U11 spliceosomal RNA: a 138-nucleotide RNA sequence from Apis mellifera. It is annotated as a spliceosomal small nuclear RNA. Taxonomically the source falls in Apis (Eukaryota, Opisthokonta, Arthropoda, Endopterygota). Pairs were carried over by alignment from the consensus structure, which is taken from published work. Gene Ontology terms of the family: pre-mRNA 5'-splice site binding, U11 snRNP and mRNA 5'-splice site recognition.
[Rfam]
RNA sequence: AAAAAGGGUGCUCGCUACUUUAAUAUCGCGUUAGCACGGUCAAGUACCAUGCUAGCGGGGUAUGGCAAUCAAGACAUACCCAGUACGUAAUUUUUGUGAAUGCGAGGCUGUUGGCUGCCAUUUUGCACUGACGCCUCC
Numbered sequence: 001a002a003a004a005a006g007g008g009u010g011c012u013c014g015c016u017a018c019u020u021u022a023a024u025a026u027c028g029c030g031u032u033a034g035c036a037c038g039g040u041c042a043a044g045u046a047c048c049a050u051g052c053u054a055g056c057g058g059g060g061u062a063u064g065g066c067a068a069u070c071a072a073g074a075c076a077u078a079c080c081c082a083g084u085a086c087g088u089a090a091u092u093u094u095u096g097u098g099a100a101u102g103c104g105a106g107g108c109u110g111u112u113g114g115c116u117g118c119c120a121u122u123u124u125g126c127a128c129u130g131a132c133g134c135c136u137c138c
Base pairs, nucleotide, nucleotide: 008086009085010084011083012082013028014027016025017024029057030056031055032054033053034052035051036050038048039047040046058081059080060079061078062077063076064075105136106135107134108133110132111131112130113129114128116127117126118125